A member of the RNA family "Plant signal recognition particle RNA" from Manihot esculenta, 303 nucleotides long. The family is grouped with related families in Rfam's "SRP clan". Pairs were carried over by alignment from the consensus structure, which is taken from published work. Rfam 15.1 lists 4,988 matches to the family in 266 species.
[Rfam]
RNA sequence: GCCGAGCUCAGUAACGUGGGCUUGUCACCCAAGUGGGGGCUCGAAGGUGUUGGAACGUUGUUCGAGCCCUUAUGGCAGGAUCAGGCUUGGCUAAUUUCUGGCUUGCCCGUUCCAAGCUGAGAGUUAAACCAUGGGACCUGGGCGAAGGCUUGGGUCUCCUAGUUCCUAGAGCAGGGGGUAAUGCGUGAGGCUGGCUUCACAGAGCAGCGAUUACCUCUCGCUCCCAGCAGUGGAAAGAUAACAGGUCAGUACCAUCCUGGUUCAUAUGGCUAGAUGGGCUGUGCUAACAGGACCAUCACUUUU
Number, nucleotide and partner (000 for none) at each position: 001g040002c039003c038004g023005a022006g021007c020008u019009c018010a017011g000012u000013a000014a000015c000016g000017u010018g009019g008020g007021c006022u005023u004024g000025u000026c000027a000028c037029c036030c035031a000032a000033g000034u000035g030036g029037g028038g003039g002040c001041u000042c000043g303044a302045a301046g300047g299048u298049g297050u000051u295052g294053g293054a000055a000056c290057g000058u287059u286060g285061u283062u000063c281064g280065a000066g000067c000068c277069c276070u000071u274072a000073u272074g271075g270076c269077a000078g263079g262080a261081u260082c259083a258084g257085g256086c000087u000088u254089g253090g252091c000092u251093a250094a000095u000096u000097u000098c249099u248100g247101g246102c245103u244104u243105g242106c000107c237108c000109g000110u235111u234112c233113c232114a231115a000116g228117c227118u226119g225120a000121g223122a222123g221124u220125u000126a000127a164128a163129c162130c000131a160132u000133g158134g157135g156136a155137c154138c153139u152140g151141g150142g149143c148144g000145a000146a000147g000148g143149c142150u141151u140152g139153g138154g137155u136156c135157u134158c133159c000160u131161a000162g129163u128164u127165c000166c171167u000168a000169g000170a000171g166172c000173a218174g217175g216176g215177g214178g000179u000180a000181a000182u000183g000184c209185g208186u207187g000188a000189g000190g000191c202192u201193g200194g000195c000196u000197u000198c000199a000200c193201a192202g191203a000204g000205c000206a000207g186208c185209g184210a000211u000212u000213a000214c177215c176216u175217c174218u173219c000220g124221c123222u122223c121224c000225c119226a118227g117228c116229a000230g000231u114232g113233g112234a111235a110236a000237g107238a000239u000240a000241a000242c105243a104244g103245g102246u101247c100248a099249g098250u093251a092252c090253c089254a088255u000256c085257c084258u083259g082260g081261u080262u079263c078264a000265u000266a000267u000268g000269g076270c075271u074272a073273g000274a071275u000276g069277g068278g000279c000280u064281g063282u000283g061284c000285u060286a059287a058288c000289a000290g056291g000292a000293c053294c052295a051296u000297c049298a048299c047300u046301u045302u044303u043